Overview:
Rfam assigns this 50-nucleotide RNA sequence from Caballeronia telluris to the family "Guanidine-II riboswitch aptamer (mini-ykkC)".
RNA sequence: UGCCGGGGACGACCCCGGAAAACAUCUUUUCACGUGGCGGGACGGCCCGC
Numbered sequence: 001u002g003c004c005g006g007g008g009a010c011g012a013c014c015c016c017g018g019a020a021a022a023c024a025u026c027u028u029u030u031c032a033c034g035u036g037g038c039g040g041g042a043c044g045g046c047c048c049g050c
Stems, first nucleotide, its partner, number of pairs: 001020001003018006037050005
Rfam describes the family as follows. Simpler in structure and has fewer highly conserved nucleotide positions than the ykkC-yxkD leader. Despite this each of its two stem-loop structures directly bind free guanidine. Therefore, mini-ykkC RNA motif represents a distinct class of guanidine-sensing RNAs. Its crystal structure was also determined.